[Rfam]
Acido-Lenti-1 RNA: a 46-nucleotide RNA from Limnoglobus roseus.
RNA sequence: CCAGGGGCUGACGCCCCUGGCUAACAUCUGCCGCCGCUCCGCAGCU
Dot-bracket structure: ((((((((....))))))))............((.((...)).)).
Numbered sequence: 001c002c003a004g005g006g007g008c009u010g011a012c013g014c015c016c017c018u019g020g021c022u023a024a025c026a027u028c029u030g031c032c033g034c035c036g037c038u039c040c041g042c043a044g045c046u
Stems, first nucleotide, its partner, number of pairs: 001020008033045002036042002

Pairs were carried over by alignment from the consensus structure, which is taken from published work.